[Rfam]
RNA sequence: AGGAGUGUCCUUGCUGUCCUGUGCCCUCCUGGCUUCUGCCUGUCCCGGGGGGAGCGCUGGAUCUUGGGCUGUGUCCC
Numbered sequence: 001a002g003g004a005g006u007g008u009c010c011u012u013g014c015u016g017u018c019c020u021g022u023g024c025c026c027u028c029c030u031g032g033c034u035u036c037u038g039c040c041u042g043u044c045c046c047g048g049g050g051g052g053a054g055c056g057c058u059g060g061a062u063c064u065u066g067g068g069c070u071g072u073g074u075c076c077c
Stems, first nucleotide, its partner, number of pairs: 002076003010068004016062004021057004025052008
Overview:
Rfam assigns this 77-nucleotide RNA from Canis lupus to the family "mir-8791 microRNA precursor family".